RNA sequence: UUGCUGCGAUGAAGCAAAAGGUUGCCGAUGUGCCAGGCCAUAUGGGCACCAAUCGGGGAAUUUUUGCGGAGUAGGUCCAGAGGAUUGGGCGACAA
Numbered sequence: 001u002u003g004c005u006g007c008g009a010u011g012a013a014g015c016a017a018a019a020g021g022u023u024g025c026c027g028a029u030g031u032g033c034c035a036g037g038c039c040a041u042a043u044g045g046g047c048a049c050c051a052a053u054c055g056g057g058g059a060a061u062u063u064u065u066g067c068g069g070a071g072u073a074g075g076u077c078c079a080g081a082g083g084a085u086u087g088g089g090c091g092a093c094a095a
Stems, first nucleotide, its partner, number of pairs: 014067003018064004025056005075093003080090001
Dot-bracket structure: .............(((.((((...(((((......................)))))....))))))).......(((..(.........))))..